[Rfam]
RNA sequence: AAACUUUUUGUAAAGACUAUUAAUUUCAUCAUAAUUACCAUAAAAAAUAAUCAAAAGGGAAUUAUGGUAUAAU
Dot-bracket structure: ...........................((((((((.........................)))))))).....